RNA sequence: GGGCGGAGCGCCGGAUCUUGGGCUGUGUUCCCGGCACCCUGUGCCUCCGGGCCUGGGCUGCCCUGGAAUCGCGCUCCAGGCCGUGCAGCUCCCU
Numbered sequence: 001g002g003g004c005g006g007a008g009c010g011c012c013g014g015a016u017c018u019u020g021g022g023c024u025g026u027g028u029u030c031c032c033g034g035c036a037c038c039c040u041g042u043g044c045c046u047c048c049g050g051g052c053c054u055g056g057g058c059u060g061c062c063c064u065g066g067a068a069u070c071g072c073g074c075u076c077c078a079g080g081c082c083g084u085g086c087a088g089c090u091c092c093c094u
Base pairs, nucleotide, nucleotide: 001094002093003092005090006089010086011085012083013082014081017080018079020077021076022075024073025072026071027070029067030066031065032060033059034058035057037055041053043052044051045050
Dot-bracket structure: (((.((...(((((..((.(((.((((.(((((((.(...(.(((....)))).).))))....)))..)))).))).))))).))..)).)))
The family of this 94-nucleotide RNA from Nyctereutes procyonoides is "mir-8799 microRNA precursor family". NCBI's taxonomy places the organism under Eukaryota, Opisthokonta, Metazoa, Theria, Nyctereutes.